[Rfam]
RNA sequence: AGUUUCAUUUCGCAAACCACGUGAAAGCGUGGGACGCAAAGCCUCCGGCCUACAGCGCGCGCAGCGCCACGGUAGCGGGGUUGCCGGU
Numbered sequence: 001a002g003u004u005u006c007a008u009u010u011c012g013c014a015a016a017c018c019a020c021g022u023g024a025a026a027g028c029g030u031g032g033g034a035c036g037c038a039a040a041g042c043c044u045c046c047g048g049c050c051u052a053c054a055g056c057g058c059g060c061g062c063a064g065c066g067c068c069a070c071g072g073u074a075g076c077g078g079g080g081u082u083g084c085c086g087g088u
Base pairs, nucleotide, nucleotide: 012037013036017032018031019030020029021028022027040082041081042080043079045078046077047076048073049072050071055067056066057065058064
This 88-nucleotide RNA sequence from Burkholderiales bacterium JOSHI_001 belongs to the Rfam family "c-di-GMP-I riboswitch aptamer". The match comes from Rfam's covariance-model search (72 bits). The organism belongs to Burkholderiales, within Bacteria.